[Rfam]
RNA: mir-126 microRNA precursor family
Nucleotides: 073
Base pairs, nucleotide, nucleotide: 009065010064011063012062013061014060015059016058017057018056022052023051024050025049026048027047029045
Number, partner (000 for none) and nucleotide at each position: 001000u002000g003000a004000c005000c006000a007000c008000g009065c010064a011063u012062u013061a014060u015059u016058a017057c018056u019000c020000a021000c022052g023051g024050u025049a026048c027047g028000a029045g030000u031000u032000u033000g034000a035000a036000g037000u038000g039000u040000c041000a042000c043000a044000g045029c046000g047027c048026g049025u050024a051023c052022c053000a054000a055000a056018a057017g058016u059015a060014a061013u062012a063011a064010u065009g066000u067000g068000c069000u070000g071000u072000c073000a